Nuclear RNase P: a 300-nucleotide sequence from Hemisphaericaspora subhashii.
Rfam links the family to the GO terms ribonuclease P complex, ribonuclease P activity and tRNA processing.
RNA sequence: AUCGUUUCGCAUUUACCCGUUUUACACAAGGAUUUUCACUGUAAAAUCAUAAUAAUAAAAAAAAUGGGUGGGAAAUUCGGUGGUACGGUCCAUCCAAUUACAAAAUUUGCCCCUGAGGGUUUCCUGAGCGCGGAAGCGCAUGGGCGGUGUUACAAGAAAUCUACAACGGAGACGCUUCGGUGCUCUGUUAUGGGAAUGGCGCCGCGGAUGGUUGGUCCUCCAACAAUUAGAAGGAGGGACUAUUUAGUGCAAUUUGCGAACCUGAUCUUAUAGAUUAGGCACCCGAUACCGAUCAUCGAU
Numbered sequence: 001a002u003c004g005u006u007u008c009g010c011a012u013u014u015a016c017c018c019g020u021u022u023u024a025c026a027c028a029a030g031g032a033u034u035u036u037c038a039c040u041g042u043a044a045a046a047u048c049a050u051a052a053u054a055a056u057a058a059a060a061a062a063a064a065u066g067g068g069u070g071g072g073a074a075a076u077u078c079g080g081u082g083g084u085a086c087g088g089u090c091c092a093u094c095c096a097a098u099u100a101c102a103a104a105a106u107u108u109g110c111c112c113c114u115g116a117g118g119g120u121u122u123c124c125u126g127a128g129c130g131c132g133g134a135a136g137c138g139c140a141u142g143g144g145c146g147g148u149g150u151u152a153c154a155a156g157a158a159a160u161c162u163a164c165a166a167c168g169g170a171g172a173c174g175c176u177u178c179g180g181u182g183c184u185c186u187g188u189u190a191u192g193g194g195a196a197u198g199g200c201g202c203c204g205c206g207g208a209u210g211g212u213u214g215g216u217c218c219u220c221c222a223a224c225a226a227u228u229a230g231a232a233g234g235a236g237g238g239a240c241u242a243u244u245u246a247g248u249g250c251a252a253u254u255u256g257c258g259a260a261c262c263u264g265a266u267c268u269u270a271u272a273g274a275u276u277a278g279g280c281a282c283c284c285g286a287u288a289c290c291g292a293u294c295a296u297c298g299a300u
Stems, first nucleotide, its partner, number of pairs: 001300004006260006015069005031048006078291005088209004109120004126141001128139004145204007165189003261279007